The family of this 85-nucleotide RNA sequence from Corymbia citriodora is "Plastid-psbM 3UTR RNA".
Rfam classes the family as a cis-regulatory element.
A reference for the family is Richter et al. (2023), "Retrograde signaling in plants: A critical review focusing on the GUN pathway and beyond", Plant Commun.
The family has 237 seed sequences and 627 matches in Rfam 15.1.
Lineage of the source: Eukaryota > Embryophyta > rosids > Myrtales > Corymbia citriodora.
RNA sequence: GAUUCGAUAAUAUGGUAGAAAGAUUCAUAUAUCUCUUUCUACCAUACUAGCUAUUAUUCUUAUUGUAAUUUAUUAGAAUAUAACA
Numbered sequence: 001g002a003u004u005c006g007a008u009a010a011u012a013u014g015g016u017a018g019a020a021a022g023a024u025u026c027a028u029a030u031a032u033c034u035c036u037u038u039c040u041a042c043c044a045u046a047c048u049a050g051c052u053a054u055u056a057u058u059c060u061u062a063u064u065g066u067a068a069u070u071u072a073u074u075a076g077a078a079u080a081u082a083a084c085a
Base pairs, nucleotide, nucleotide: 006051008049009048011046012045013044014043015042016041017040018039019038020037021036022035023034